[Rfam]
RNA sequence: UGUACAUGAAACUGGCUUAUAAGGGCGGUCGGCUAAUCUCCCGGAAGGGAGGUGAUGCCCGUGGCGAUUAAUGAAGCUUUGACGAUCAUGAUCAGUUUUGGUGCGCUUAUUAUUGCGCUGCUGACGCUGGUUGUGGCCAUCGUCGUAGCGAUUAAUCAAAACACAAAGAAAUAGACCGCCCCCCAGCGAAGGAUGCGGUCUAUUUUGAUCCACCUUUGCACAGCCGACCGCUCUUUAAAGCGGUAAGUGUACAUGAGGAGUCGUGUUACAGCACGGCUC
Numbered sequence: 001u002g003u004a005c006a007u008g009a010a011a012c013u014g015g016c017u018u019a020u021a022a023g024g025g026c027g028g029u030c031g032g033c034u035a036a037u038c039u040c041c042c043g044g045a046a047g048g049g050a051g052g053u054g055a056u057g058c059c060c061g062u063g064g065c066g067a068u069u070a071a072u073g074a075a076g077c078u079u080u081g082a083c084g085a086u087c088a089u090g091a092u093c094a095g096u097u098u099u100g101g102u103g104c105g106c107u108u109a110u111u112a113u114u115g116c117g118c119u120g121c122u123g124a125c126g127c128u129g130g131u132u133g134u135g136g137c138c139a140u141c142g143u144c145g146u147a148g149c150g151a152u153u154a155a156u157c158a159a160a161a162c163a164c165a166a167a168g169a170a171a172u173a174g175a176c177c178g179c180c181c182c183c184c185a186g187c188g189a190a191g192g193a194u195g196c197g198g199u200c201u202a203u204u205u206u207g208a209u210c211c212a213c214c215u216u217u218g219c220a221c222a223g224c225c226g227a228c229c230g231c232u233c234u235u236u237a238a239a240g241c242g243g244u245a246a247g248u249g250u251a252c253a254u255g256a257g258g259a260g261u262c263g264u265g266u267u268a269c270a271g272c273a274c275g276g277c278u279c
Base pairs, nucleotide, nucleotide: 001253002252003251004250005249007247013226014225015224016223017222023181024180025179027176029174034055036053038051039050040049041048042047063152065150066149068147077090100144101143102142103141187207188206189205228243229242230241231240258279259278260277261276262275263274264273265272266271
A member of the RNA family "BsrG" from Paenibacillus macerans, 279 nucleotides long.
It scores 65 bits against the family's covariance model.
Gene Ontology terms of the family: autolysis and toxin activity.
Rfam describes the family as follows. bsrE, bsrG and bsrH pair through intermolecular interactions with antisense sRNAs.
Rfam classes the family as a small RNA.